The record is a 166-nucleotide RNA sequence from Arsenophonus nasoniae, which matches "Glm Y RNA activator of glmS mRNA" in Rfam. It is annotated as a small RNA. A reference for the family is Rivas et al. (2001), "Computational identification of noncoding RNAs in E. coli by comparative genomics", Curr Biol. Clan: Glm clan. The source organism's lineage runs through Bacteria, Pseudomonadota, Gammaproteobacteria, Enterobacterales and Arsenophonus. This family consists of a number of bacterial RNA genes of around 167 bases in length. The tke1 RNA gene is present in Escherichia coli, Shigella flexneri, Yersinia pestis and Salmonella species where it is found between the yfhK and purL genes. The function of this RNA is unknown.

[Rfam]
RNA sequence: AGUUGCUCAUUCAACUUUUUAUGUCGGAUCCUAUAGCGAUGGAUGCAUACCACAUAAGCCAGGAAUGAUGCCAAAAGUAAGGUGCCUAUCGUCCAACAGCAUGAUAUAGCUUAAAUUAAUCUGCUUUAUCAAACAUCGGGCGACACGUGGAGUGAGGCACCAUCUA
Numbered sequence: 001a002g003u004u005g006c007u008c009a010u011u012c013a014a015c016u017u018u019u020u021a022u023g024u025c026g027g028a029u030c031c032u033a034u035a036g037c038g039a040u041g042g043a044u045g046c047a048u049a050c051c052a053c054a055u056a057a058g059c060c061a062g063g064a065a066u067g068a069u070g071c072c073a074a075a076a077g078u079a080a081g082g083u084g085c086c087u088a089u090c091g092u093c094c095a096a097c098a099g100c101a102u103g104a105u106a107u108a109g110c111u112u113a114a115a116u117u118a119a120u121c122u123g124c125u126u127u128a129u130c131a132a133a134c135a136u137c138g139g140g141c142g143a144c145a146c147g148u149g150g151a152g153u154g155a156g157g158c159a160c161c162a163u164c165u166a
Stems, first nucleotide, its partner, number of pairs: 005071002007068006019057006026051002081161007090142005102131005144154003